Vault RNA: an 85-nucleotide sequence from Nephila pilipes. Pairs were carried over by alignment from the consensus structure, which is taken from published work. By type it is a non-coding RNA gene.
[Rfam]
RNA sequence: ACGUAGGCUUGGUCUAGUGGUUACAUCGCCGUUCAACUUGCGAUUGAUAAUUCGAUACCGACCACGGACGCUGUCCUACGUUUUG
Number, nucleotide and partner (000 for none) at each position: 001a000002c080003g079004u078005a077006g076007g075008c000009u000010u000011g000012g069013u068014c067015u066016a000017g065018u064019g063020g062021u000022u000023a000024c000025a056026u055027c054028g053029c000030c000031g000032u000033u000034c000035a000036a000037c000038u000039u000040g000041c000042g000043a000044u000045u000046g000047a000048u000049a000050a000051u000052u000053c028054g027055a026056u025057a000058c000059c000060g000061a000062c020063c019064a018065c017066g015067g014068a013069c012070g000071c000072u000073g000074u000075c007076c006077u005078a004079c003080g002081u000082u000083u000084u000085g000